[Rfam]
RNA sequence: AAAGAAGAUAGAGGUUGCGGGAUUUAAAAGUAAGUUUGUGGAGUUUGAGCAAACAGUGAAACAAACCUAAAGGAAAGACCGCCGAAACCUAUAGCUGAAAGCUUUAAGGCUAUAGAGUUGGGGUUAUGUAGAAUAUGCAUAACACUGUCAUAAAGUUAUUUAUGAUGAGCUAUCACGAUA
Numbered sequence: 001a002a003a004g005a006a007g008a009u010a011g012a013g014g015u016u017g018c019g020g021g022a023u024u025u026a027a028a029a030g031u032a033a034g035u036u037u038g039u040g041g042a043g044u045u046u047g048a049g050c051a052a053a054c055a056g057u058g059a060a061a062c063a064a065a066c067c068u069a070a071a072g073g074a075a076a077g078a079c080c081g082c083c084g085a086a087a088c089c090u091a092u093a094g095c096u097g098a099a100a101g102c103u104u105u106a107a108g109g110c111u112a113u114a115g116a117g118u119u120g121g122g123g124u125u126a127u128g129u130a131g132a133a134u135a136u137g138c139a140u141a142a143c144a145c146u147g148u149c150a151u152a153a154a155g156u157u158a159u160u161u162a163u164g165a166u167g168a169g170c171u172a173u174c175a176c177g178a179u180a
Stems, first nucleotide, its partner, number of pairs: 007174005017082004023076003034066006086119003089115008120146002123143008148165007